[Rfam]
RNA sequence: UUUUUCAUAACUUUGGUAACCUAGCUUUAUGAAGCUUUAAUCUCUCAUACAGCUAGAUAACCAAAGAGAAAAAUAA
Numbered sequence: 001u002u003u004u005u006c007a008u009a010a011c012u013u014u015g016g017u018a019a020c021c022u023a024g025c026u027u028u029a030u031g032a033a034g035c036u037u038u039a040a041u042c043u044c045u046c047a048u049a050c051a052g053c054u055a056g057a058u059a060a061c062c063a064a065a066g067a068g069a070a071a072a073a074u075a076a
Base pairs, nucleotide, nucleotide: 001076002075004073005072008069011066012065013064014063015062016061017060019058021056022055023054024053025052026051028049029048030047031046032045